[Rfam]
RNA: Small nucleolar RNA Z43
Organism: Phtheirospermum japonicum
RNA sequence: GGGCAUUGAUGAGUGGUUUGUGAUAGGUCUCGUUCGUCGUAAUGGCAUUUUAUAUGCCUUGCCGACCAUCCACCCAUAAAUUGAGUCC
Numbered sequence: 001g002g003g004c005a006u007u008g009a010u011g012a013g014u015g016g017u018u019u020g021u022g023a024u025a026g027g028u029c030u031c032g033u034u035c036g037u038c039g040u041a042a043u044g045g046c047a048u049u050u051u052a053u054a055u056g057c058c059u060u061g062c063c064g065a066c067c068a069u070c071c072a073c074c075c076a077u078a079a080a081u082u083g084a085g086u087c088c
Base pairs, nucleotide, nucleotide: 001088002087003086004085047060